[Rfam]
RNA sequence: AUAUUAGGUUUUUACCUUCCCAGGUAACAAACCAACUAACUCUCGAUCUCUUGUAGAUCUGUUCUCUAAACGAACUUUAAAAUCUGUGUGACUGUCACUUAGCUGCAUGCUUAGUGCACUCACGCAGUUUAAUUAUAAUUAAUUACUGUCGUUGACAGGACACGAGUAACUCGUCUAUCUUCUGCAGGUUGCUUACGGUUUCGUCCGUGUUGCAGCCGAUCAUCAGCAUACCUUGGUUUCGUCCGGGUGUGACCGAGAGGUAAGAUGGAGAGCCUUGUCCCUGGUUUCAACGAGAAAA
Numbered sequence: 001a002u003a004u005u006a007g008g009u010u011u012u013u014a015c016c017u018u019c020c021c022a023g024g025u026a027a028c029a030a031a032c033c034a035a036c037u038a039a040c041u042c043u044c045g046a047u048c049u050c051u052u053g054u055a056g057a058u059c060u061g062u063u064c065u066c067u068a069a070a071c072g073a074a075c076u077u078u079a080a081a082a083u084c085u086g087u088g089u090g091a092c093u094g095u096c097a098c099u100u101a102g103c104u105g106c107a108u109g110c111u112u113a114g115u116g117c118a119c120u121c122a123c124g125c126a127g128u129u130u131a132a133u134u135a136u137a138a139u140u141a142a143u144u145a146c147u148g149u150c151g152u153u154g155a156c157a158g159g160a161c162a163c164g165a166g167u168a169a170c171u172c173g174u175c176u177a178u179c180u181u182c183u184g185c186a187g188g189u190u191g192c193u194u195a196c197g198g199u200u201u202c203g204u205c206c207g208u209g210u211u212g213c214a215g216c217c218g219a220u221c222a223u224c225a226g227c228a229u230a231c232c233u234u235g236g237u238u239u240c241g242u243c244c245g246g247g248u249g250u251g252a253c254c255g256a257g258a259g260g261u262a263a264g265a266u267g268g269a270g271a272g273c274c275u276u277g278u279c280c281c282u283g284g285u286u287u288c289a290a291c292g293a294g295a296a297a298a
Stems, first nucleotide, its partner, number of pairs: 007033005013026005045059005061075004084127008093118002096116004101111003149293007156283004162278005170272003174269003178265004182226003187217006194209005227251007235244002252261003